RNA sequence: ACAAAUGCGUCGAUGGAGACAAGUACGCAGCGCCUUCCUCUCAGGGAGGGAACGCCGGAGACUGGGAGCGUUCCUAGGAAAUCAGGCUGCCGAAAUUCACUCCGGAGCAGUUCCUUGAACUUCGCCGCGGGCGGACAGUAGAGGGGAACGGCAGCGGCCCGUUACGCCGCGCAUGAGCGGGAAUGUUCCAAGCGGUCGUCAUCGGCGAUCGAGCCGAGCGCGGCGGACGUUCCAACAAGGGUGGUACCACGGUCCUAUCGUCCCUUUC
Dot-bracket structure: ......((......((((........(((((.....(((........((((((((............))))))))))).......))))).........))))...))..((((((........................)))).)).(((.......)))..................(((((((((....................................)))))))))....((((.......(((((...)))))))))...
RNA: T-box leader
Organism: Cohnella xylanilytica